[Rfam]
RNA sequence: AUGUCCUGCUCGUGAUCGUCUUCUCACCCUUCACCGGCAGGCGCACAGCGAAGUGCUCCCCCUGGCACACUGCCCGGGGGAGCACUUC
Numbered sequence: 001a002u003g004u005c006c007u008g009c010u011c012g013u014g015a016u017c018g019u020c021u022u023c024u025c026a027c028c029c030u031u032c033a034c035c036g037g038c039a040g041g042c043g044c045a046c047a048g049c050g051a052a053g054u055g056c057u058c059c060c061c062c063u064g065g066c067a068c069a070c071u072g073c074c075c076g077g078g079g080g081a082g083c084a085c086u087u088c
Stems, first nucleotide, its partner, number of pairs: 002043002005041006012034004018028001050088013064074002

Rfam assigns this 88-nucleotide sequence to the family "sodF sRNA". Rfam classes the family as a small RNA. The match comes from Rfam's covariance-model search (67 bits). A reference for the family is Kim et al. (2014), "Inverse regulation of Fe- and Ni-containing SOD genes by a Fur family regulator Nur through small RNA processed from 3'UTR of the sodF mRNA", Nucleic Acids Res.